[Rfam]
RNA sequence: UCCUAGCCCUGAUAGAAGCGGCAUCCUUUUUCUUUUUUUUCAAAAGAAAAAGAUAUAGCUGAUAGCAGGAAAUAGC
Numbered sequence: 001u002c003c004u005a006g007c008c009c010u011g012a013u014a015g016a017a018g019c020g021g022c023a024u025c026c027u028u029u030u031u032c033u034u035u036u037u038u039u040u041c042a043a044a045a046g047a048a049a050a051a052g053a054u055a056u057a058g059c060u061g062a063u064a065g066c067a068g069g070a071a072a073u074a075g076c
Stems, first nucleotide, its partner, number of pairs: 009068003013064002018059002023054003029049008